[Rfam]
RNA sequence: CUGUGCUAGACGGGGAGCUAGCGGUGCCCUGAACCCGCAAUCCGCUAUAGCGGGGUCGAAUUCCUGCUCGAGGGCUGCGCUUUCGGGGACUGUCCUCUUCAGUCGGCGCCGAGGGUCUGGUCCUGCGCGGCGAGGCGCUCCGAACCUGGUCAGGUCCGGAAGGAAGCAGCCAUAAGGGGUUUGCCUCGGGUGCCGCAGUCAACCGGGCCUGAGCCGGCUGUUGCAGAGCAAGCCCGGGGGCCAGUUCGACAGCAGGUGCACGG
Numbered sequence: 001c002u003g004u005g006c007u008a009g010a011c012g013g014g015g016a017g018c019u020a021g022c023g024g025u026g027c028c029c030u031g032a033a034c035c036c037g038c039a040a041u042c043c044g045c046u047a048u049a050g051c052g053g054g055g056u057c058g059a060a061u062u063c064c065u066g067c068u069c070g071a072g073g074g075c076u077g078c079g080c081u082u083u084c085g086g087g088g089a090c091u092g093u094c095c096u097c098u099u100c101a102g103u104c105g106g107c108g109c110c111g112a113g114g115g116u117c118u119g120g121u122c123c124u125g126c127g128c129g130g131c132g133a134g135g136c137g138c139u140c141c142g143a144a145c146c147u148g149g150u151c152a153g154g155u156c157c158g159g160a161a162g163g164a165a166g167c168a169g170c171c172a173u174a175a176g177g178g179g180u181u182u183g184c185c186u187c188g189g190g191u192g193c194c195g196c197a198g199u200c201a202a203c204c205g206g207g208c209c210u211g212a213g214c215c216g217g218c219u220g221u222u223g224c225a226g227a228g229c230a231a232g233c234c235c236g237g238g239g240g241c242c243a244g245u246u247c248g249a250c251a252g253c254a255g256g257u258g259c260a261c262g263g
Stems, first nucleotide, its partner, number of pairs: 001263006009057003012030004017025003034054005063256006072247005079241009091230002096226001099223001104217001105215003113210009123198005128190001131188005137180005147172004155164003
Overview
Shown here is a 263-nucleotide RNA from Tepidiforma thermophila, a member of the family "Bacterial large signal recognition particle RNA". Rfam links the family to the GO terms SRP-dependent cotranslational protein targeting to membrane, signal sequence recognition and signal recognition particle, plasma membrane targeting. The source organism's lineage runs through Bacteria, Bacillati, Tepidiformia, Tepidiformaceae and Tepidiforma. Rfam's curators write: The signal recognition particle (SRP) is a universally conserved ribonucleoprotein involved in the co-translational targeting of proteins to membranes. By type it is a non-coding RNA gene. The match comes from Rfam's covariance-model search (187 bits). The literature on the family includes a 2002 paper in Nucleic Acids Res by Regalia et al., "Prediction of signal recognition particle RNA genes".